[Rfam]
Nucleotides: 057
Stems, first nucleotide, its partner, number of pairs: 001053013014039001019034005
Number, partner (000 for none) and nucleotide at each position: 001053a002052a003051a004050g005049g006048a007047g008046a009045a010044a011043u012042a013041a014039c015000g016000c017000c018000c019034u020033c021032u022031u023030g024000a025000u026000a027000g028000a029000a030023c031022a032021a033020g034019a035000a036000a037000g038000g039014g040000u041013u042012u043011a044010u045009u046008u047007c048006u049005c050004c051003u052002u053001u054000c055000u056000u057000u
A member of the RNA family "Plastid-psbA-3 3UTR RNA", 57 nucleotides long. From the family's description: Plastid psbA-3 is a non-coding RNA (ncRNA) present in plastids. The family's RNA type in Rfam is cis-regulatory element. Its Rfam clan is "Plastid-psbA 3UTR RNA clan".